[Rfam]
RNA sequence: AACUUGAAGUUGGAACUUCCCAUCAGAUCUGAAUGCUGAUCUUCCUGGUCAUAGAAGGAGGAAAAAAAAAACACUGAAGCUGGCUUCCCAGUGCUUAUAAUCUGGUACAUAGCUUUUGGGCUAGUUUCAAACAAGG
Numbered sequence: 001a002a003c004u005u006g007a008a009g010u011u012g013g014a015a016c017u018u019c020c021c022a023u024c025a026g027a028u029c030u031g032a033a034u035g036c037u038g039a040u041c042u043u044c045c046u047g048g049u050c051a052u053a054g055a056a057g058g059a060g061g062a063a064a065a066a067a068a069a070a071a072c073a074c075u076g077a078a079g080c081u082g083g084c085u086u087c088c089c090a091g092u093g094c095u096u097a098u099a100a101u102c103u104g105g106u107a108c109a110u111a112g113c114u115u116u117u118g119g120g121c122u123a124g125u126u127u128c129a130a131a132c133a134a135g136g
Stems, first nucleotide, its partner, number of pairs: 003061003020048003026041004080124007098112001